Shown here is a 92-nucleotide RNA sequence from Gossypium trilobum, a member of the family "Small nucleolar RNA snoR53Y".
Gene Ontology terms of the family: RNA processing and nucleolus.
The family has 7 seed sequences and 513 matches in Rfam 15.1.
Lineage of the source: Eukaryota > Embryophyta > Euphyllophyta > Malvaceae > Gossypium.
A reference for the family is Brown et al. (2001), "Multiple snoRNA gene clusters from Arabidopsis", RNA.
A search with the family's covariance model found it, with a score of 48 bits.
By type it is a C/D-box small nucleolar RNA.
RNA sequence: GUUCCAAAUGAAGCUUGAAACUUUAAAACCAUGCUAAUGCUGAUAAUCGAGUGAUUAAAUAUCUUUUAUAUUCAUUUUGAUAUGAGGAAACU
Dot-bracket structure: (((.(.................................................................................).))).